JUMPstart RNA: a 39-nucleotide RNA from Photobacterium jeanii. The family's RNA type in Rfam is cis-regulatory element. Taxonomically the source falls in Photobacterium (Bacteria, Pseudomonadati, Gammaproteobacteria, Vibrionaceae). The base pairs follow the family's consensus structure, which is taken from published work.
RNA sequence: UAGCAGAUUGGGGGCUGAUAUCCCAAGGGCGGUAGCGUG
Numbered sequence: 001u002a003g004c005a006g007a008u009u010g011g012g013g014g015c016u017g018a019u020a021u022c023c024c025a026a027g028g029g030c031g032g033u034a035g036c037g038u039g
Stems, first nucleotide, its partner, number of pairs: 008026005